This 60-nucleotide RNA sequence from Solanum commersonii belongs to the Rfam family "Plastid-psbA-4 3UTR RNA". It is annotated as a cis-regulatory element. NCBI's taxonomy places the organism under Eukaryota, Magnoliopsida, Mesangiospermae, Gunneridae, Solanum. The family's consensus secondary structure was predicted with LocARNA. The family is grouped with related families in Rfam's "Plastid-psbA 3UTR RNA clan". It scores 71 bits against the family's covariance model. About the family: Plastid psbA-4 is a non-coding RNA (ncRNA) present in plastids. It was identified in inverted repeat sequences in the 3 prime untranslate region (3UTR) of photosystem II quinone-binding protein (psbA).

RNA sequence: AAAGAAAAGGAGCAAUAAUAAUUUUCUUGUUCUAUCAAGAAGGUGCUAUUGCUCCUUCUU
Dot-bracket structure: ......(((((((((((...((.((((((......)))))).))..)))))))))))...
Numbered sequence: 001a002a003a004g005a006a007a008a009g010g011a012g013c014a015a016u017a018a019u020a021a022u023u024u025u026c027u028u029g030u031u032c033u034a035u036c037a038a039g040a041a042g043g044u045g046c047u048a049u050u051g052c053u054c055c056u057u058c059u060u
Stems, first nucleotide, its partner, number of pairs: 007057011021044002024041006